RNA: chrB-b RNA
Organism: Nitrobacter sp. Nb-311A
RNA sequence: AGGGGAUAGGCAGACUCCCCGAUCAGACGGUUUCCGUCCAAACUCUGC
Numbered sequence: 001a002g003g004g005g006a007u008a009g010g011c012a013g014a015c016u017c018c019c020c021g022a023u024c025a026g027a028c029g030g031u032u033u034c035c036g037u038c039c040a041a042a043c044u045c046u047g048c
Base pairs, nucleotide, nucleotide: 002020003019004018005017006016010048011047012046013045014044026038027037028036029035030034